[Rfam]
The family of this 108-nucleotide RNA sequence from Rhododendron simsii is "Small nucleolar RNA snoR100". A reference for the family is Marker et al. (2002), "Experimental RNomics: identification of 140 candidates for small non-messenger RNAs in the plant Arabidopsis thaliana", Curr Biol. The family's RNA type in Rfam is H/ACA-box small nucleolar RNA. The family has 9 seed sequences and 1,851 matches in Rfam 15.1.
RNA sequence: GAAUGAAGGAAGCAUGGUAAUGUGCACAAAAAUUGAUUCGGGUCUCUAGGCCUGCCCUCUCUAAUGUCUUUCAGCUUUGAUUUGGGGGCAUGGUUUCGCAAAAAAACA
Numbered sequence: 001g002a003a004u005g006a007a008g009g010a011a012g013c014a015u016g017g018u019a020a021u022g023u024g025c026a027c028a029a030a031a032a033u034u035g036a037u038u039c040g041g042g043u044c045u046c047u048a049g050g051c052c053u054g055c056c057c058u059c060u061c062u063a064a065u066g067u068c069u070u071u072c073a074g075c076u077u078u079g080a081u082u083u084g085g086g087g088g089c090a091u092g093g094u095u096u097c098g099c100a101a102a103a104a105a106a107c108a
Stems, first nucleotide, its partner, number of pairs: 012025004040091001042089003050081001052079001054075002